Shown here is a 125-nucleotide RNA sequence from Ruminococcus sp. OM06-36AC, a member of the family "Ribosomal protein L10 leader".
Lineage of the source: Bacteria > Bacillati > Eubacteriales > Oscillospiraceae > Ruminococcus.
Gene Ontology term of the family: regulation of gene expression.
Rfam describes the family as follows. This family is a putative r-protein leader autoregulatory structure found in B. subtilis and other low-GC Gram-positive bacteria. It is located in the 5' untranslated regions of mRNAs encoding ribosomal proteins L10 and L12 (rplJ-rplL). A Rho-independent transcription terminator structure that is probably involved in regulation is included at the 3' end.
RNA sequence: AAACAACAAUAUCGUAUUCUAAAGACAGUUGGUGGCGUAAGCCGUAAGUCCAACCGAGGAAUGUGCAAUGACCUGUGAAAUACAGUGCACGGUUCCCUGUCGAAUCGUGCUUUUUUAUUGCGAUU
Number, nucleotide and partner (000 for none) at each position: 001a000002a000003a000004c000005a000006a000007c000008a000009a000010u000011a000012u000013c000014g000015u000016a000017u000018u000019c000020u000021a000022a000023a000024g000025a000026c000027a000028g054029u053030u052031g051032g050033u000034g043035g042036c041037g000038u000039a000040a000041g036042c035043c034044g000045u000046a000047a000048g000049u000050c032051c031052a030053a029054c028055c000056g000057a000058g000059g000060a000061a000062u000063g000064u000065g000066c000067a000068a000069u000070g000071a000072c000073c000074u000075g000076u000077g000078a000079a000080a000081u000082a000083c000084a000085g000086u000087g110088c109089a108090c107091g106092g105093u104094u103095c102096c000097c000098u000099g000100u000101c000102g095103a094104a093105u092106c091107g090108u089109g088110c087111u000112u000113u000114u000115u000116u000117a000118u000119u000120g000121c000122g000123a000124u000125u000